The family of this 238-nucleotide RNA from Hymenoscyphus albidus is "Small nucleolar RNA snR191". For this family Rfam cites "A snoRNA that guides the two most conserved pseudouridine modifications within rRNA confers a growth advantage in yeast" (Badis et al., RNA, 2003).

RNA sequence: UUCCAUCGUUAAGUCAAGGCUCCUUCUGCAUUUUUAUGCUAUUCGCAAUGGAAGGUUGUCUGUUACAACUUUGGUAGAUUGACUCCGGUCUCGCCGCUCUUGGUCUCCGGGCCUUUAGUAGAUAGCUCACCGUCUUGGAGAGUCUAUCGUAAAGAGGCCGGUUCUGUUUCGUUUGAGUUGAAGGCUACCCCCACACCAGUGGCUUGUAGUGGUUUUCUUAGUAAUGAUUCAUACAUUC
Number, nucleotide and partner (000 for none) at each position: 001u000002u000003c074004c073005a072006u000007c000008g000009u000010u000011a000012a000013g000014u000015c000016a000017a061018g060019g059020c058021u000022c000023c055024u054025u053026c000027u000028g039029c038030a037031u036032u000033u000034u000035u000036a031037u030038g029039c028040u000041a000042u000043u000044c000045g000046c000047a000048a000049u000050g000051g000052a000053a025054g024055g023056u000057u000058g020059u019060c018061u017062g000063u000064u000065a000066c000067a000068a000069c000070u000071u000072u005073g004074g003075u000076a000077g000078a000079u000080u000081g000082a000083c000084u000085c161086c160087g159088g158089u157090c156091u000092c000093g000094c000095c000096g112097c111098u110099c109100u000101u000102g107103g000104u000105c000106u000107c102108c000109g099110g098111g097112c096113c000114u000115u000116u000117a000118g000119u000120a000121g148122a147123u146124a145125g144126c142127u141128c140129a000130c138131c137132g136133u000134c000135u000136u132137g131138g130139a000140g128141a127142g126143u000144c125145u124146a123147u122148c121149g000150u000151a000152a000153a000154g000155a000156g090157g089158c088159c087160g086161g085162u000163u000164c000165u231166g230167u000168u000169u227170c226171g225172u224173u000174u000175g000176a000177g000178u000179u000180g217181a216182a215183g214184g000185c212186u211187a210188c209189c000190c000191c202192c201193a200194c199195a000196c000197c000198a000199g194200u193201g192202g191203c000204u000205u000206g000207u000208a000209g188210u187211g186212g185213u000214u183215u182216u181217c180218u000219u000220a000221g000222u000223a000224a172225u171226g170227a169228u000229u000230c166231a165232u000233a000234c000235a000236u000237u000238c000
Source information: Its Rfam clan is "SNORA74 clan".